[Rfam]
RNA sequence: GGCCGGGUGGAGAGGCGUAAUAAAACACCUGAAAGGGGAAUAUGCCCGGAGCUUCUUAUGUAGCUCAGUUGACACCUGGCUACCAGCGA
Numbered sequence: 001g002g003c004c005g006g007g008u009g010g011a012g013a014g015g016c017g018u019a020a021u022a023a024a025a026c027a028c029c030u031g032a033a034a035g036g037g038g039a040a041u042a043u044g045c046c047c048g049g050a051g052c053u054u055c056u057u058a059u060g061u062a063g064c065u066c067a068g069u070u071g072a073c074a075c076c077u078g079g080c081u082a083c084c085a086g087c088g089a
Stems, first nucleotide, its partner, number of pairs: 001081009014046003018042002028037003049066005
RNA: sRNA-Xcc1